[Rfam]
Source information:
Shown here is a 75-nucleotide sequence from Haemonchus placei, a member of the family "mir-5928 microRNA precursor family". Taxonomically the source falls in Haemonchus (Eukaryota, Opisthokonta, Metazoa, Chromadorea).
RNA sequence: GGCACAAAUUUGAAGUAAAGUAGAAUUGUAUUAUCAGCUGACCCUACUAAACUACUCUAAUUCGAGUUUGGGCCC
Numbered sequence: 001g002g003c004a005c006a007a008a009u010u011u012g013a014a015g016u017a018a019a020g021u022a023g024a025a026u027u028g029u030a031u032u033a034u035c036a037g038c039u040g041a042c043c044c045u046a047c048u049a050a051a052c053u054a055c056u057c058u059a060a061u062u063c064g065a066g067u068u069u070g071g072g073c074c075c
Stems, first nucleotide, its partner, number of pairs: 001074003005070005011064004016059002019056005026049001028047003034041002
Rfam links the family to the GO terms miRNA-mediated post-transcriptional gene silencing and RISC complex.